[Rfam]
RNA sequence: UCCUAUGAUGAUACAAUCCAAAUAUUUGAGCGACGUGGAUCCAAGACCCUGUUUUACAGGGAGAACCACUUGGCUGAAGCGUAACUGCAAAUGAUAUUACUGGAUUUACCUGAGGA
Numbered sequence: 001u002c003c004u005a006u007g008a009u010g011a012u013a014c015a016a017u018c019c020a021a022a023u024a025u026u027u028g029a030g031c032g033a034c035g036u037g038g039a040u041c042c043a044a045g046a047c048c049c050u051g052u053u054u055u056a057c058a059g060g061g062a063g064a065a066c067c068a069c070u071u072g073g074c075u076g077a078a079g080c081g082u083a084a085c086u087g088c089a090a091a092u093g094a095u096a097u098u099a100c101u102g103g104a105u106u107u108a109c110c111u112g113a114g115g116a
Stems, first nucleotide, its partner, number of pairs: 001116003047061005
Dot-bracket structure: (((...........................................(((((.....)))))....................................................)))
Rfam assigns this 116-nucleotide RNA sequence from Mikania micrantha to the family "Small nucleolar RNA Z278". It scores 43 bits against the family's covariance model. Rfam describes the family as follows. snoZ278 is a C/D box small nucleolar RNA. Its methylation guide targets have not been reported. The base pairs follow the family's consensus structure, which was predicted with PFOLD.